[Rfam]
RNA sequence: UGAAGACGAUGAUGAUUUCAUAGUUCAACUUAACAGUACUUGACGAACAAAUUUCGCCCCUAGCUGAUGUCUUUA
Numbered sequence: 001u002g003a004a005g006a007c008g009a010u011g012a013u014g015a016u017u018u019c020a021u022a023g024u025u026c027a028a029c030u031u032a033a034c035a036g037u038a039c040u041u042g043a044c045g046a047a048c049a050a051a052u053u054u055c056g057c058c059c060c061u062a063g064c065u066g067a068u069g070u071c072u073u074u075a
Base pairs, nucleotide, nucleotide: 004072005071006070007069008068
The family of this 75-nucleotide RNA from Strigamia maritima is "Small nucleolar RNA snR60/Z15/Z230/Z193/J17". Rfam links the family to the GO terms nucleolus and RNA processing. Pairs were carried over by alignment from the consensus structure. Rfam 15.1 lists 3,592 matches to the family in 1,855 species.